The record is a 96-nucleotide RNA from Daucus carota, which matches "Small nucleolar RNA R64/Z200 family" in Rfam. It is annotated as a C/D-box small nucleolar RNA. A reference for the family is Marker et al. (2002), "Experimental RNomics: identification of 140 candidates for small non-messenger RNAs in the plant Arabidopsis thaliana", Curr Biol. It scores 79 bits against the family's covariance model.

RNA sequence: UUUCUGUUGUGACGAUAUAUGAAUAUAUUCACAUGUCAGACUUCAGAGAUUUCAAAAGAAAUCAAUGAGAAUUCAAUUCAUUUUACUGAGUGGAAA
Numbered sequence: 001u002u003u004c005u006g007u008u009g010u011g012a013c014g015a016u017a018u019a020u021g022a023a024u025a026u027a028u029u030c031a032c033a034u035g036u037c038a039g040a041c042u043u044c045a046g047a048g049a050u051u052u053c054a055a056a057a058g059a060a061a062u063c064a065a066u067g068a069g070a071a072u073u074c075a076a077u078u079c080a081u082u083u084u085a086c087u088g089a090g091u092g093g094a095a096a
Stems, first nucleotide, its partner, number of pairs: 001096007048063004